[Rfam]
The family of this 82-nucleotide RNA from Takifugu flavidus is "Small nucleolar RNA SNORD79".
snoRNA U79 or Z22 is found in intron 7 of the gas5 gene in humans and is also present in mice.
NCBI's taxonomy places the organism under Eukaryota, Metazoa, Eumetazoa, Bilateria, Takifugu.
For this family Rfam cites "Purified box C/D snoRNPs are able to reproduce site-specific 2'-O-methylation of target RNA in vitro" (Galardi et al., Mol Cell Biol, 2002).
The family is grouped with related families in Rfam's "SNORD74 clan".

RNA sequence: AGCUGUUAAUGAUGAUCUUGUUUUAAAAACAAUGGGAAUCUCUCUGAAUAAGAGUGAAAGAUGACUUUCAACUGACACAGUA
Numbered sequence: 001a002g003c004u005g006u007u008a009a010u011g012a013u014g015a016u017c018u019u020g021u022u023u024u025a026a027a028a029a030c031a032a033u034g035g036g037a038a039u040c041u042c043u044c045u046g047a048a049u050a051a052g053a054g055u056g057a058a059a060g061a062u063g064a065c066u067u068u069c070a071a072c073u074g075a076c077a078c079a080g081u082a
Base pairs, nucleotide, nucleotide: 002081003080004079005078006077
Dot-bracket structure: .(((((......................................................................))))).